Rfam assigns this 140-nucleotide RNA from Gavia stellata to the family "Small Cajal body specific RNA 11". On this family, see Darzacq et al., EMBO J 2002: "Cajal body-specific small nuclear RNAs: a novel class of 2'-O-methylation and pseudouridylation guide RNAs". Rfam 15.1 lists 853 matches to the family in 557 species. Taxonomically the source falls in Gavia (Eukaryota, Metazoa, Archelosauria, Theropoda). By type it is a small Cajal body RNA. The match comes from Rfam's covariance-model search (71 bits). Rfam's curators write: scaRNAs are a specific class of small nuclear RNAs which localise to the Cajal bodies and guide the modification of RNA polymerase II transcribed spliceosomal RNAs U1, U2, U4, U5 and U12.

RNA sequence: GCGUCCCAACCUCAUCCUGGCUGUUCCCCUCACCGGAGCCGUGGUGGUGGGGUCUGGGGGUGGACGCAGAUCAACUUACCUCUCGUGUUAGGAGGGCUGCCAAAGGCAUGAGCAAACCCUUAAAGGCAAGAGAGGACACU
Numbered sequence: 001g002c003g004u005c006c007c008a009a010c011c012u013c014a015u016c017c018u019g020g021c022u023g024u025u026c027c028c029c030u031c032a033c034c035g036g037a038g039c040c041g042u043g044g045u046g047g048u049g050g051g052g053u054c055u056g057g058g059g060g061u062g063g064a065c066g067c068a069g070a071u072c073a074a075c076u077u078a079c080c081u082c083u084c085g086u087g088u089u090a091g092g093a094g095g096g097c098u099g100c101c102a103a104a105g106g107c108a109u110g111a112g113c114a115a116a117c118c119c120u121u122a123a124a125g126g127c128a129a130g131a132g133a134g135g136a137c138a139c140u
Base pairs, nucleotide, nucleotide: 002066003065004064005063006062010059011058026052027051028049030047031046032045033044079135080134081133082132083131084130088125089124092121093120094119095118096117098115099113100112101110102109
Dot-bracket structure: .(((((...((..............(((.((((..........)))).).)).....))..)))))............((((((...((..(((((.(((((......)).)).).)))))..))....)))))).....